[Rfam]
Background: Rfam assigns this 58-nucleotide sequence to the family "sul1 RNA". It is annotated as a riboswitch.

RNA sequence: UCAGGACCCGGGUGCGAUCCCCGGGUGGCUCCUCCGGCCGCCGAUCCGCCGGACCACC
Numbered sequence: 001u002c003a004g005g006a007c008c009c010g011g012g013u014g015c016g017a018u019c020c021c022c023g024g025g026u027g028g029c030u031c032c033u034c035c036g037g038c039c040g041c042c043g044a045u046c047c048g049c050c051g052g053a054c055c056a057c058c
Base pairs, nucleotide, nucleotide: 006026007025008024009023010022011021033053034052035051036050037049038048